[Rfam]
RNA sequence: UUGAAGCUUCAUCUAUAAGUAGAAUAAGAUUUUCAUCUUAGUGUAUGUGAGUUUUUGACAAUAAAGAAGGAAUAACCAAUUUCCUCUUCUAUCAAGAGGAUGGUAUUGCUCCUUU
Numbered sequence: 001u002u003g004a005a006g007c008u009u010c011a012u013c014u015a016u017a018a019g020u021a022g023a024a025u026a027a028g029a030u031u032u033u034c035a036u037c038u039u040a041g042u043g044u045a046u047g048u049g050a051g052u053u054u055u056u057g058a059c060a061a062u063a064a065a066g067a068a069g070g071a072a073u074a075a076c077c078a079a080u081u082u083c084c085u086c087u088u089c090u091a092u093c094a095a096g097a098g099g100a101u102g103g104u105a106u107u108g109c110u111c112c113u114u115u
Base pairs, nucleotide, nucleotide: 008024009023010022011020012019063115064114065113066112068110069109071107072106073105074104077102078101081098082097083096085094
The record is a 115-nucleotide sequence from Vitis rotundifolia, which matches "Plastid-psbA-1 3UTR RNA" in Rfam. It scores 82 bits against the family's covariance model. It is annotated as a cis-regulatory element.